[Rfam]
RNA: FMN riboswitch aptamer (RFN element)
Nucleotides: 132
Base pairs, nucleotide, nucleotide: 004129005128006127007126008125009124010123017029018028019027031112032111033102034101035065036064037063038062060100061099070076082098083097084096085095086094104115105114106113
Number, partner (000 for none) and nucleotide at each position: 001000a002000c003000a004129g005128a006127u007126c008125u009124u010123c011000g012000g013000g014000g015000c016000a017029a018028g019027g020000u021000g022000a023000a024000a025000u026000u027019c028018c029017u030000g031112a032111u033102c034101g035065g036064c037063g038062g039000u040000g041000a042000u043000g044000g045000u046000g047000g048000c049000g050000u051000g052000c053000c054000a055000c056000a057000u058000a059000a060100g061099c062038c063037c064036g065035c066000g067000a068000g069000c070076c071000g072000a073000g074000a075000g076070g077000c078000a079000g080000g081000a082098c083097u084096u085095g086094g087000u088000g089000a090000g091000a092000a093000u094086c095085c096084a097083g098082g099061g100060c101034c102033g103000a104115c105114g106113g107000u108000a109000u110000a111032g112031u113106c114105c115104g116000g117000a118000u119000g120000g121000a122000a123010g124009a125008a126007g127006a128005u129004c130000g131000c132000a